[Rfam]
RNA sequence: UGAGCAGGGAUUGUGUGUAUUGGUGUUGUGCUGCAAUUAUUGCACUCUUCCAAAAGAGUUCCCUGCAGCAAAAAUUUGGGCAAGAUGGUGUUUGUUUGGAACCCAAUAAUCGAGAGAAUCUUUCCUCAAGGG
Numbered sequence: 001u002g003a004g005c006a007g008g009g010a011u012u013g014u015g016u017g018u019a020u021u022g023g024u025g026u027u028g029u030g031c032u033g034c035a036a037u038u039a040u041u042g043c044a045c046u047c048u049u050c051c052a053a054a055a056g057a058g059u060u061c062c063c064u065g066c067a068g069c070a071a072a073a074a075u076u077u078g079g080g081c082a083a084g085a086u087g088g089u090g091u092u093u094g095u096u097u098g099g100a101a102c103c104c105a106a107u108a109a110u111c112g113a114g115a116g117a118a119u120c121u122u123u124c125c126u127c128a129a130g131g132g
Base pairs, nucleotide, nucleotide: 004066005065006064007063008062009061010060015045016044017043018042019041078126079125080124082122083121084120085119086118
The record is a 132-nucleotide sequence from Trifolium subterraneum, which matches "small nucleolar RNA snoR135" in Rfam.
The family's RNA type in Rfam is H/ACA-box small nucleolar RNA.
The base pairs follow the family's consensus structure, which was predicted with RNAalifold.